RNA sequence: ACUUGGAUAGCUCAGCGGUAGAGCAUCAGACUGUGGAUCUGAUUGUGGAAGGUUCGAAUCCUUCUCCAAACC
Numbered sequence: 001a002c003u004u005g006g007a008u009a010g011c012u013c014a015g016c017g018g019u020a021g022a023g024c025a026u027c028a029g030a031c032u033g034u035g036g037a038u039c040u041g042a043u044u045g046u047g048g049a050a051g052g053u054u055c056g057a058a059u060c061c062u063u064c065u066c067c068a069a070a071c072c
Stems, first nucleotide, its partner, number of pairs: 003069005010024004026042005048064005
Source information:
The family of this 72-nucleotide RNA from Oleomonas cavernae is "tRNA". The family's RNA type in Rfam is transfer RNA. The base pairs follow the family's consensus structure, which is taken from published work. The organism belongs to Oleomonas, within Bacteria. The match comes from Rfam's covariance-model search (57 bits).